[Rfam]
RNA sequence: AGGUUGUCGAAUGGUGGAAAAUAAAGGAUGAUUAGUUUUUAUCCCUUCGCUUGCCUUUUAUUUCUAUUCAUGUUAUUCUAAUCAAGAAUUAUUUUUGUUCGGUAACAAGCGACAUCGCCUGGAUACGUUUGAGCAAGAAUAGUAAUACAAUUGUGUGGUAAACACACUAGGAGGCAACAAAAAUGGAAAACGGUAAAGUAAAAUGGUUUAAUGCAGAAAAAGGUUUCGGAUUCAUCGAGCGCGAAGGUGGAGACGAUGUAUUCGUUCACUUCUCAGCUAUCCAAGGCGAAGGCUUCAAAACUCUUGAAGAAGGCCAAGAAGUAACUUUCGACGUUGAACAAGGAGCUCGUGGACCACAAGCUGCUAACGUUCGCAAAAACUAAUUUUAGGUUUUGCCCAUAAAAAACAGGUUCCCUUAGGGGAGCCUGUUUUUA
Numbered sequence: 001a002g003g004u005u006g007u008c009g010a011a012u013g014g015u016g017g018a019a020a021a022u023a024a025a026g027g028a029u030g031a032u033u034a035g036u037u038u039u040u041a042u043c044c045c046u047u048c049g050c051u052u053g054c055c056u057u058u059u060a061u062u063u064c065u066a067u068u069c070a071u072g073u074u075a076u077u078c079u080a081a082u083c084a085a086g087a088a089u090u091a092u093u094u095u096u097g098u099u100c101g102g103u104a105a106c107a108a109g110c111g112a113c114a115u116c117g118c119c120u121g122g123a124u125a126c127g128u129u130u131g132a133g134c135a136a137g138a139a140u141a142g143u144a145a146u147a148c149a150a151u152u153g154u155g156u157g158g159u160a161a162a163c164a165c166a167c168u169a170g171g172a173g174g175c176a177a178c179a180a181a182a183a184u185g186g187a188a189a190a191c192g193g194u195a196a197a198g199u200a201a202a203a204u205g206g207u208u209u210a211a212u213g214c215a216g217a218a219a220a221a222g223g224u225u226u227c228g229g230a231u232u233c234a235u236c237g238a239g240c241g242c243g244a245a246g247g248u249g250g251a252g253a254c255g256a257u258g259u260a261u262u263c264g265u266u267c268a269c270u271u272c273u274c275a276g277c278u279a280u281c282c283a284a285g286g287c288g289a290a291g292g293c294u295u296c297a298a299a300a301c302u303c304u305u306g307a308a309g310a311a312g313g314c315c316a317a318g319a320a321g322u323a324a325c326u327u328u329c330g331a332c333g334u335u336g337a338a339c340a341a342g343g344a345g346c347u348c349g350u351g352g353a354c355c356a357c358a359a360g361c362u363g364c365u366a367a368c369g370u371u372c373g374c375a376a377a378a379a380c381u382a383a384u385u386u387u388a389g390g391u392u393u394u395g396c397c398c399a400u401a402a403a404a405a406a407c408a409g410g411u412u413c414c415c416u417u418a419g420g421g422g423a424g425c426c427u428g429u430u431u432u433u434a
Stems, first nucleotide, its partner, number of pairs: 004020002007017003026240001029237004041231001042229002044223004051217002055213001057211002060208001064206002069153001073142007081099001083097002114124003156192002159189001242336003246332001255263002266324001268322004273318001276315001277313002280307002283304001285302001288301001342355002346352002359381002362375003384403003389398002404431012

Rfam assigns this 434-nucleotide RNA from Bacillus sp. B-jedd to the family "cspA thermoregulator".
A search with the family's covariance model found it, with a score of 91 bits.
By type it is an RNA thermoregulator.